[Rfam]
RNA sequence: UACAGACAAGGGCACCAUCGGUGAAAGCCGAUCUCGCAAAGCCAAGGGCCUAAACGGAAGGUAUUCCGCAUGGCAGCCGGUUUCCUAA
Numbered sequence: 001u002a003c004a005g006a007c008a009a010g011g012g013c014a015c016c017a018u019c020g021g022u023g024a025a026a027g028c029c030g031a032u033c034u035c036g037c038a039a040a041g042c043c044a045a046g047g048g049c050c051u052a053a054a055c056g057g058a059a060g061g062u063a064u065u066c067c068g069c070a071u072g073g074c075a076g077c078c079g080g081u082u083u084c085c086u087a088a
Base pairs, nucleotide, nucleotide: 012037013036017032018031019030020029021028022027040082041081042080043079046078047077048074049073050072055068056067057066058065
RNA: c-di-GMP-I riboswitch aptamer